[Rfam]
RNA sequence: UUUUUCGACGGAGAUGGCAUUCCUUCCGUGAACCGCCCUGGCAUCGCCCGGGGCUAAUGAUGCCUACAGACAC
Numbered sequence: 001u002u003u004u005u006c007g008a009c010g011g012a013g014a015u016g017g018c019a020u021u022c023c024u025u026c027c028g029u030g031a032a033c034c035g036c037c038c039u040g041g042c043a044u045c046g047c048c049c050g051g052g053g054c055u056a057a058u059g060a061u062g063c064c065u066a067c068a069g070a071c072a073c
Stems, first nucleotide, its partner, number of pairs: 010026004016064006035054007
RNA: Fluoride riboswitch aptamer (crcB RNA motif)
Organism: Variovorax sp. PAMC 28711